[Rfam]
RNA: mir-302 microRNA precursor family
Organism: Salvator merianae
RNA sequence: CCACUACUUUAAUAUGGAAGUACUUGUUUCAUUCCUUUAAAAAAAGUGCUUUCAUAUUUUAGUGAUGG
Numbered sequence: 001c002c003a004c005u006a007c008u009u010u011a012a013u014a015u016g017g018a019a020g021u022a023c024u025u026g027u028u029u030c031a032u033u034c035c036u037u038u039a040a041a042a043a044a045a046g047u048g049c050u051u052u053c054a055u056a057u058u059u060u061a062g063u064g065a066u067g068g
Stems, first nucleotide, its partner, number of pairs: 001068003005064004011058015027042002